[Rfam]
RNA: TPP riboswitch aptamer (THI element)
Organism: Paracoccus halophilus
RNA sequence: GGCGCCACCAAGGGGAGCCCCGGCAAGGGGCUGAGAAACCGCUGGCGCAGCGAGCGCGGUGACCCUUCGAACCUGAACCGGAUCAUGCCGGCGGAGGGAUGGGAAGAAAUGCACCU
Numbered sequence: 001g002g003c004g005c006c007a008c009c010a011a012g013g014g015g016a017g018c019c020c021c022g023g024c025a026a027g028g029g030g031c032u033g034a035g036a037a038a039c040c041g042c043u044g045g046c047g048c049a050g051c052g053a054g055c056g057c058g059g060u061g062a063c064c065c066u067u068c069g070a071a072c073c074u075g076a077a078c079c080g081g082a083u084c085a086u087g088c089c090g091g092c093g094g095a096g097g098g099a100u101g102g103g104a105a106g107a108a109a110u111g112c113a114c115c116u
Stems, first nucleotide, its partner, number of pairs: 008102003011066004017031005038060005072097003078091004